[Rfam]
RNA sequence: AAGUGAAAAAGGCAAACUAUGGGAAACCGUAGGACGCAAAGCCAAGGGCCUAAACCAAAAAUUUUAAGUUUUGGUAGGCAGCCGGUUGCCACA
Numbered sequence: 001a002a003g004u005g006a007a008a009a010a011g012g013c014a015a016a017c018u019a020u021g022g023g024a025a026a027c028c029g030u031a032g033g034a035c036g037c038a039a040a041g042c043c044a045a046g047g048g049c050c051u052a053a054a055c056c057a058a059a060a061a062u063u064u065u066a067a068g069u070u071u072u073g074g075u076a077g078g079c080a081g082c083c084g085g086u087u088g089c090c091a092c093a
Base pairs, nucleotide, nucleotide: 012037013036017032018031019030020029021028022027040087041086042085043084046083047082048079049078050077055073057071058070
Dot-bracket structure: ...........((...((((((....))))))...))..((((..(((((....(.((...........)).)...)))..))))))......
Rfam assigns this 93-nucleotide RNA sequence from Bacillus sp. cl95 to the family "c-di-GMP-I riboswitch aptamer". The family's consensus secondary structure is taken from published work. NCBI's taxonomy places the organism under Bacteria, Bacillati, Bacilli, Bacillaceae, Bacillus. A search with the family's covariance model found it, with a score of 74 bits.